[Rfam]
RNA sequence: ACAGAGACUAGAGUCACAUCUUGACACAACUCUGGUCCUGGUGUGUUGAGGUCUGGGGGAGAGAAGCUGCUGGUCAUGAUUCACAGACCGGGCAUCCAGUGCCUCUAUUAGUGCUCAGACCAGUAACAUUC
Number, nucleotide and partner (000 for none) at each position: 001a000002c057003a000004g000005a054006g053007a052008c051009u050010a000011g000012a047013g046014u000015c045016a044017c043018a042019u041020c040021u000022u000023g037024a036025c035026a000027c000028a000029a000030c000031u000032c000033u000034g000035g025036u024037c023038c000039u000040g020041g019042u018043g017044u016045g015046u013047u012048g000049a000050g009051g008052u007053c006054u005055g000056g000057g002058g000059g000060a000061g000062a000063g000064a000065a000066g000067c000068u000069g000070c123071u122072g121073g120074u119075c118076a000077u000078g115079a000080u000081u000082c113083a112084c111085a000086g109087a108088c000089c000090g105091g103092g102093c101094a000095u000096c000097c000098a000099g000100u000101g093102c092103c091104u000105c090106u000107a000108u087109u086110a000111g084112u083113g082114c000115u078116c000117a000118g075119a074120c073121c072122a071123g070124u000125a000126a000127c000128a000129u000130u000131c000
RNA: Small nucleolar RNA SNORA3/SNORA45 family